The record is a 78-nucleotide sequence from Collichthys lucidus, which matches "mir-17 microRNA precursor family" in Rfam.
A reference for the family is Lagos-Quintana et al. (2001), "Identification of novel genes coding for small expressed RNAs", Science.
RNA sequence: CUUUGGCUGUCAAAAGUGCUGUUUGUGCAGGUAGAAGUCCUCCACCUACUGCAAAACCAGCACUUCAGGCAGACAGGA
Number, nucleotide and partner (000 for none) at each position: 001c000002u000003u000004u075005g074006g000007c072008u000009g070010u069011c068012a000013a000014a065015a064016g063017u062018g061019c060020u059021g058022u000023u056024u055025g000026u053027g052028c051029a000030g050031g049032u048033a047034g046035a000036a000037g000038u000039c000040c000041u000042c000043c000044a000045c000046c034047u033048a032049c031050u030051g028052c027053a026054a000055a024056a023057c000058c021059a020060g019061c018062a017063c016064u015065u014066c000067a000068g011069g010070c009071a000072g007073a000074c005075a004076g000077g000078a000

Gene Ontology terms of the family: miRNA-mediated post-transcriptional gene silencing and RISC complex.